[Rfam]
RNA sequence: ACUCUCUGGUUUCCGGUCAGGAAUUGCGGAUAAAUCUUUCGUCUUUUACUAAAGAUUUCCAUGGCCAGGAAGAAUUUAAUGAGUCUAGACCAAAAAAUAGGACAUAUCUUGUGUCAAACCAAGCUC
Numbered sequence: 001a002c003u004c005u006c007u008g009g010u011u012u013c014c015g016g017u018c019a020g021g022a023a024u025u026g027c028g029g030a031u032a033a034a035u036c037u038u039u040c041g042u043c044u045u046u047u048a049c050u051a052a053a054g055a056u057u058u059c060c061a062u063g064g065c066c067a068g069g070a071a072g073a074a075u076u077u078a079a080u081g082a083g084u085c086u087a088g089a090c091c092a093a094a095a096a097a098u099a100g101g102a103c104a105u106a107u108c109u110u111g112u113g114u115c116a117a118a119c120c121a122a123g124c125u126c
Stems, first nucleotide, its partner, number of pairs: 004083003010071004015066005032058008106125001108123004
Dot-bracket structure: ...(((...((((.(((((............((((((((...........))))))))...))))).)))).........)))......................(.((((........)))).).
U5 spliceosomal RNA: a 126-nucleotide RNA sequence from Acanthosepion pharaonis. Gene Ontology terms of the family: spliceosomal tri-snRNP complex assembly and U5 snRNP. About the family: U5 RNA is a component of both types of known spliceosome. The precise function of this molecule is unknown, though it is known that the 5' loop is required for splice site selection and p220 binding, and that both the 3' stem-loop and the Sm site are important for Sm protein binding and cap methylation.